Shown here is a 119-nucleotide RNA sequence from Paenibacillus selenitireducens, a member of the family "epsC RNA". NCBI's taxonomy places the organism under Bacteria, Bacillota, Bacilli, Paenibacillaceae, Paenibacillus.

RNA sequence: UGGAGAUGUCUUCCUUUCCGUUAUCAAUGGAGGCACUCGGCCGUGCUGUGGGAAUAUAUUUCAUAGGUCCUUAGGCGUGAAUCGCCAGGGGUGCGGUGUGAGGAUGGGUUAAAUGCCUA
Numbered sequence: 001u002g003g004a005g006a007u008g009u010c011u012u013c014c015u016u017u018c019c020g021u022u023a024u025c026a027a028u029g030g031a032g033g034c035a036c037u038c039g040g041c042c043g044u045g046c047u048g049u050g051g052g053a054a055u056a057u058a059u060u061u062c063a064u065a066g067g068u069c070c071u072u073a074g075g076c077g078u079g080a081a082u083c084g085c086c087a088g089g090g091g092u093g094c095g096g097u098g099u100g101a102g103g104a105u106g107g108g109u110u111a112a113a114u115g116c117c118u119a
Base pairs, nucleotide, nucleotide: 001020002019003018004017007035008034009033010032011031012030013029036102037101038100039099040097041096042095043094044093045092046091047090050071051070052069053068055065056064057063074086075085076084077083105119106118107117108116109115